[Rfam]
RNA sequence: GAUGAUCACUACUGUAAGUCGCUCUGGAUAAGAGCGUCUGCUAAAUGACUAAAA
Number, nucleotide and partner (000 for none) at each position: 001g000002a000003u000004g000005a000006u000007c000008a000009c000010u000011a000012c000013u043014g041015u040016a039017a000018g000019u000020c036021g035022c034023u033024c032025u031026g000027g000028a000029u000030a000031a025032g024033a023034g022035c021036g020037u000038c000039u016040g015041c014042u000043a013044a000045a000046u000047g000048a000049c000050u000051a000052a000053a000054a000

UnaL2 LINE 3' element: a 54-nucleotide RNA sequence from Salmo salar. The organism belongs to Salmo, within Eukaryota. The family's consensus secondary structure is taken from published work. The match comes from Rfam's covariance-model search (69 bits). By type it is a cis-regulatory element. The eel long interspersed element (LINE) UnaL2 and its partner short interspersed element (SINE) share a conserved 3' tail containing a stem-loop that is critical for their retrotransposition. Presumably, the first step of retrotransposition is the recognition of their 3' tails by UnaL2-encoded reverse transcriptase. The solution structure of a 17-nucleotide RNA derived from the 3' tail of UnaL2 was determined by NMR.